[Rfam]
RNA: Bacterial RNase P class A
Organism: Thermotomaculum hydrothermale
RNA sequence: GAAGAAAGGCGGGUAAUCGCAAAGGCUUUUGCCUUUGAGGAAAGUCCGAACUCCGCAGGGCAGUGCGCCGGGGAAAGCCCGGUCUCCGAAAGGAGAAGGAAAGUGCCACAGAAAACAUACCGCCCAGCACCUACUUUGCGUGUUUAUUUAUUGUUGUGGGCAGUAAUUGAAAUAGGCAAAGUAGGUGCUGGGUAAGGGUGAAAAGGUGGGGUAAGAGCCCACCGCUCCAAUGGUGACAUUGGAGGCACGGUAAACCCCGCACGGAGCAAGGCCAAAUAGGGGAGCGUACGAGGGUGGCCCGCCCCAUGCUUCCGGGUAGGCCGCUUGUGGUAUCGGGUAACCGAUAUCCCAGAGGAAUGAUUACCCGAGACAGAAUUCGGCUUACAGCCUUUCUUCCACU
Numbered sequence: 001g002a003a004g005a006a007a008g009g010c011g012g013g014u015a016a017u018c019g020c021a022a023a024g025g026c027u028u029u030u031g032c033c034u035u036u037g038a039g040g041a042a043a044g045u046c047c048g049a050a051c052u053c054c055g056c057a058g059g060g061c062a063g064u065g066c067g068c069c070g071g072g073g074a075a076a077g078c079c080c081g082g083u084c085u086c087c088g089a090a091a092g093g094a095g096a097a098g099g100a101a102a103g104u105g106c107c108a109c110a111g112a113a114a115a116c117a118u119a120c121c122g123c124c125c126a127g128c129a130c131c132u133a134c135u136u137u138g139c140g141u142g143u144u145u146a147u148u149u150a151u152u153g154u155u156g157u158g159g160g161c162a163g164u165a166a167u168u169g170a171a172a173u174a175g176g177c178a179a180a181g182u183a184g185g186u187g188c189u190g191g192g193u194a195a196g197g198g199u200g201a202a203a204a205g206g207u208g209g210g211g212u213a214a215g216a217g218c219c220c221a222c223c224g225c226u227c228c229a230a231u232g233g234u235g236a237c238a239u240u241g242g243a244g245g246c247a248c249g250g251u252a253a254a255c256c257c258c259g260c261a262c263g264g265a266g267c268a269a270g271g272c273c274a275a276a277u278a279g280g281g282g283a284g285c286g287u288a289c290g291a292g293g294g295u296g297g298c299c300c301g302c303c304c305c306a307u308g309c310u311u312c313c314g315g316g317u318a319g320g321c322c323g324c325u326u327g328u329g330g331u332a333u334c335g336g337g338u339a340a341c342c343g344a345u346a347u348c349c350c351a352g353a354g355g356a357a358u359g360a361u362u363a364c365c366c367g368a369g370a371c372a373g374a375a376u377u378c379g380g381c382u383u384a385c386a387g388c389c390u391u392u393c394u395u396c397c398a399c400u
Stems, first nucleotide, its partner, number of pairs: 001396010011385001012365007020037007042383003046380005051266004058300004063262005068082005083097001084095004098257002103255002105251003120197002122193018205223006224246001225244008270322004280313006292304004329348008